[Rfam]
RNA sequence: GAGAAAGAGGUAGUUAAGACUUGCAGUGAUGUUUAGAGGCAUUAACACAUGAACAUCACUUUAAGUCUGUGCUAACUCUG
Numbered sequence: 001g002a003g004a005a006a007g008a009g010g011u012a013g014u015u016a017a018g019a020c021u022u023g024c025a026g027u028g029a030u031g032u033u034u035a036g037a038g039g040c041a042u043u044a045a046c047a048c049a050u051g052a053a054c055a056u057c058a059c060u061u062u063a064a065g066u067c068u069g070u071g072c073u074a075a076c077u078c079u080g
Stems, first nucleotide, its partner, number of pairs: 017068007026059010
Overview:
mir-499 microRNA precursor family: an 80-nucleotide RNA from Lepisosteus oculatus. A reference for the family is Ahn et al. (2010), "MicroRNA transcriptome in the newborn mouse ovaries determined by massive parallel sequencing", Mol Hum Reprod.